Background
This 84-nucleotide sequence from Balaeniceps rex belongs to the Rfam family "Small nucleolar RNA SNORD19". Pairs were carried over by alignment from the consensus structure. Rfam links the family to the GO terms RNA processing and nucleolus.
[Rfam]
RNA sequence: UUGGGAUGGGGGAAAAAAAAAAUCAGUCUGAGAAACUUUGACAUCUGAUUAGAUCCAGCUUCUUGAAGGAACCGAAGUUUUGCU
Dot-bracket structure: ((((...................................................................)))).........